Shown here is a 180-nucleotide RNA sequence from Streptomyces sp. NRRL B-3648, a member of the family "c-di-AMP riboswitch aptamer (ydaO/yuaA leader)".
RNA sequence: CAUAACCCAUCGACGAACUCAUUCGUACGGCAGGAGCGGGGGACCCAGGUAAGCCGCCGGGCCGGACGGCACACGCCGCACCGGUACGGCUCGGGGUGAAGCCGUGCCUCUUCCAGGGCACGGCCGGGCACCUCCCCGCCCGAACCCGACAGCUCACCUCGCAGGCGACGGAGAGGAACA
Numbered sequence: 001c002a003u004a005a006c007c008c009a010u011c012g013a014c015g016a017a018c019u020c021a022u023u024c025g026u027a028c029g030g031c032a033g034g035a036g037c038g039g040g041g042g043a044c045c046c047a048g049g050u051a052a053g054c055c056g057c058c059g060g061g062c063c064g065g066a067c068g069g070c071a072c073a074c075g076c077c078g079c080a081c082c083g084g085u086a087c088g089g090c091u092c093g094g095g096g097u098g099a100a101g102c103c104g105u106g107c108c109u110c111u112u113c114c115a116g117g118g119c120a121c122g123g124c125c126g127g128g129c130a131c132c133u134c135c136c137c138g139c140c141c142g143a144a145c146c147c148g149a150c151a152g153c154u155c156a157c158c159u160c161g162c163a164g165g166c167g168a169c170g171g172a173g174a175g176g177a178a179c180a
Base pairs, nucleotide, nucleotide: 011167012166014164019034020033036162037161038160039159040158041157046093094147095146096145102123103122104121105120106119107118108117126141127140128139129138
Lineage of the source: Bacteria > Actinomycetes > Kitasatosporales > Streptomycetaceae > Streptomyces.